[Rfam]
RNA sequence: UCCAGCAGUUGUCAGCUGCCCAGAGCAGUUCUGUGCCUGUGCUAGUGUUACACUGCUGGGAGAGAAAUGUGCUGUCAGUGUUUCCUGGUAUUCCUGAUACUGUUCUAGUGUCAGUCAGUGCCAGGUUUUGGUAGCACUUUGCAUGCUUGAGAGUGGAGUAACUUUCUCUGCAGAGUUAAUCCUAGACUGGAUGCAAACAAU
Numbered sequence: 001u002c003c004a005g006c007a008g009u010u011g012u013c014a015g016c017u018g019c020c021c022a023g024a025g026c027a028g029u030u031c032u033g034u035g036c037c038u039g040u041g042c043u044a045g046u047g048u049u050a051c052a053c054u055g056c057u058g059g060g061a062g063a064g065a066a067a068u069g070u071g072c073u074g075u076c077a078g079u080g081u082u083u084c085c086u087g088g089u090a091u092u093c094c095u096g097a098u099a100c101u102g103u104u105c106u107a108g109u110g111u112c113a114g115u116c117a118g119u120g121c122c123a124g125g126u127u128u129u130g131g132u133a134g135c136a137c138u139u140u141g142c143a144u145g146c147u148u149g150a151g152a153g154u155g156g157a158g159u160a161a162c163u164u165u166c167u168c169u170g171c172a173g174a175g176u177u178a179a180u181c182c183u184a185g186a187c188u189g190g191a192u193g194c195a196a197a198c199a200a201u
Base pairs, nucleotide, nucleotide: 001060002059003058004057005056006055007054008053009052011051012050015046016045017044018043020041021039022038023037069137070136071135072134073133074132075131076130077129084125085124086123087122088121089120090119091118092117094114095113096111098110099109100108101107139196140195141194142193143192144191146189155182156181157180159178160177161176162175163174164173165172

The family of this 201-nucleotide RNA from Crocodylus porosus is "Small nucleolar RNA SNORA74". The family's consensus secondary structure was predicted with PFOLD. The family has 24 seed sequences and 1,348 matches in Rfam 15.1. Clan: SNORA74 clan.